[Rfam]
RNA sequence: GCCGGUCCUCGGUCGUGGUCGCCGGGAUGGGUACGGGCACCGGACCCGGGGACUUCGACUGAGCACCGGC
Numbered sequence: 001g002c003c004g005g006u007c008c009u010c011g012g013u014c015g016u017g018g019u020c021g022c023c024g025g026g027a028u029g030g031g032u033a034c035g036g037g038c039a040c041c042g043g044a045c046c047c048g049g050g051g052a053c054u055u056c057g058a059c060u061g062a063g064c065a066c067c068g069g070c
Base pairs, nucleotide, nucleotide: 001070002069003068004067005066006065009062010061011060012059013058017054018053019052020051022049023048024047025046026045028044029041030040
The family of this 70-nucleotide RNA from Frankia casuarinae is "Actino-pnp RNA". The family's consensus secondary structure is taken from published work. The organism belongs to Frankia, within Bacteria.